[Rfam]
RNA sequence: CUGUGCUCUACAGUGCAUGUGUCUCCAGUGUCACUCAGCGACUGGAGCUGCUGCGCUGUCGGAAGAAC
Number, nucleotide and partner (000 for none) at each position: 001c000002u000003g000004u000005g000006c000007u063008c062009u061010a059011c058012a057013g056014u000015g054016c053017a000018u000019g051020u050021g049022u000023c047024u046025c045026c044027a043028g042029u041030g000031u000032c000033a000034c000035u000036c000037a000038g000039c000040g000041a029042c028043u027044g026045g025046a024047g023048c000049u021050g020051c019052u000053g016054c015055g000056c013057u012058g011059u010060c000061g009062g008063a007064a000065g000066a000067a000068c000
RNA: mir-139 microRNA precursor family